[Rfam]
RNA sequence: UCUGGGCGGUGUAGCGGCUCCCUGUAACCCGAGCGGGAGUAAGAGAGAUGGAAGUCGGAGCUCUUGCAGAGAACCACUGGGAUCAUGUCGAAGGCACGUCCACUUGAAGCGUGGAGUCUCUGAUCUGGGUUCUUCCGCGGAAGCGCGAGGAGUCUGGGGAAAUAAUGCGGAAGGCACAGCGUGAGGCGGGUGCCCGAGCAGCGAUCACUUUCCGCUCUGCGCAGUCGAGGGACAGCGUGCUUGAAUGCUUGCCAGUGAUCAUCCCAUGUGAGCAGUUUUUUGCGACCUUUCUC
Numbered sequence: 001u002c003u004g005g006g007c008g009g010u011g012u013a014g015c016g017g018c019u020c021c022c023u024g025u026a027a028c029c030c031g032a033g034c035g036g037g038a039g040u041a042a043g044a045g046a047g048a049u050g051g052a053a054g055u056c057g058g059a060g061c062u063c064u065u066g067c068a069g070a071g072a073a074c075c076a077c078u079g080g081g082a083u084c085a086u087g088u089c090g091a092a093g094g095c096a097c098g099u100c101c102a103c104u105u106g107a108a109g110c111g112u113g114g115a116g117u118c119u120c121u122g123a124u125c126u127g128g129g130u131u132c133u134u135c136c137g138c139g140g141a142a143g144c145g146c147g148a149g150g151a152g153u154c155u156g157g158g159g160a161a162a163u164a165a166u167g168c169g170g171a172a173g174g175c176a177c178a179g180c181g182u183g184a185g186g187c188g189g190g191u192g193c194c195c196g197a198g199c200a201g202c203g204a205u206c207a208c209u210u211u212c213c214g215c216u217c218u219g220c221g222c223a224g225u226c227g228a229g230g231g232a233c234a235g236c237g238u239g240c241u242u243g244a245a246u247g248c249u250u251g252c253c254a255g256u257g258a259u260c261a262u263c264c265c266a267u268g269u270g271a272g273c274a275g276u277u278u279u280u281u282g283c284g285a286c287c288u289u290u291c292u293c
Base pairs, nucleotide, nucleotide: 002039003038004023005022006021008019009018010017028037029036030035045291046290048289050287051286054283055282057280058279059278060276061275062274064272065271067268068267069265071263072262075255080250081248086244092242093241094240095239096238097237098236099235100231101230103229104228105227106226107225109222110221111220112219113218114217115216116215117214121161124158125157126156127155128154129153130152131151132150133149134148135147137146138145139144169212170211171210172209173208178205180203181202182201187196188195189194
Shown here is a 293-nucleotide sequence from Marchantia polymorpha, a member of the family "Plant signal recognition particle RNA". The family's consensus secondary structure is taken from published work. NCBI's taxonomy places the organism under Eukaryota, Marchantiidae, Marchantiales, Marchantia, Marchantia polymorpha. Rfam links the family to the GO terms signal recognition particle, endoplasmic reticulum targeting and SRP-dependent cotranslational protein targeting to membrane, signal sequence recognition. It is annotated as a non-coding RNA gene.